Notes
The record is a 68-nucleotide RNA from Streptomyces harbinensis, which matches "ASdes TB sRNA" in Rfam. The family's consensus secondary structure is taken from published work.

RNA sequence: AGCUGGUCGGGGUCCAGCGCCCGGGUGACCAGCAGAUAGUCGCGGAUGCACAUGGCGUGCCGGCCCUC
Numbered sequence: 001a002g003c004u005g006g007u008c009g010g011g012g013u014c015c016a017g018c019g020c021c022c023g024g025g026u027g028a029c030c031a032g033c034a035g036a037u038a039g040u041c042g043c044g045g046a047u048g049c050a051c052a053u054g055g056c057g058u059g060c061c062g063g064c065c066c067u068c
Stems, first nucleotide, its partner, number of pairs: 004063001006061001008059002011030003015027002018024001035056001037054002040052001042051001044049001